Record summary:
The record is a 126-nucleotide sequence from [Clostridium] leptum, which matches "azaaromatic riboswitch aptamer (yjdF RNA)" in Rfam. The source organism's lineage runs through Bacteria, Bacillota, Clostridia, Eubacteriales and Oscillospiraceae. It scores 71 bits against the family's covariance model.
RNA sequence: UAAUUGCAGGAUAAAAACGCAAUGCACAUAGUAUGAUGUGUUAGAGCUGGUAGGUAGCCCAGCCGUCUGAAAAACAUUCAGGUAAGUAACCUGCCCUCCGGGUUGUCCGUUCUUGCAAAAUACAUU
Numbered sequence: 001u002a003a004u005u006g007c008a009g010g011a012u013a014a015a016a017a018c019g020c021a022a023u024g025c026a027c028a029u030a031g032u033a034u035g036a037u038g039u040g041u042u043a044g045a046g047c048u049g050g051u052a053g054g055u056a057g058c059c060c061a062g063c064c065g066u067c068u069g070a071a072a073a074a075c076a077u078u079c080a081g082g083u084a085a086g087u088a089a090c091c092u093g094c095c096c097u098c099c100g101g102g103u104u105g106u107c108c109g110u111u112c113u114u115g116c117a118a119a120a121u122a123c124a125u126u
Base pairs, nucleotide, nucleotide: 004118005117006116007115008114009113010112011111046063047062048061049060050059065083066082067081068080069079070078093103094102095101096100
The family's consensus secondary structure is taken from published work.